Description:
A member of the RNA family "Selenocysteine insertion sequence 1" from Scophthalmus maximus, 64 nucleotides long. Lineage of the source: Eukaryota > Vertebrata > Actinopteri > Carangaria > Scophthalmus. The family's consensus secondary structure is taken from published work. The match comes from Rfam's covariance-model search (35 bits).

RNA sequence: AGUGUGUUAAUGACGGUCUGUCUUUAAACUCGACAAGAGGAAGCAGACCCGAUGUCUAAACGCU
Numbered sequence: 001a002g003u004g005u006g007u008u009a010a011u012g013a014c015g016g017u018c019u020g021u022c023u024u025u026a027a028a029c030u031c032g033a034c035a036a037g038a039g040g041a042a043g044c045a046g047a048c049c050c051g052a053u054g055u056c057u058a059a060a061c062g063c064u
Stems, first nucleotide, its partner, number of pairs: 001064005015049007023041002029039003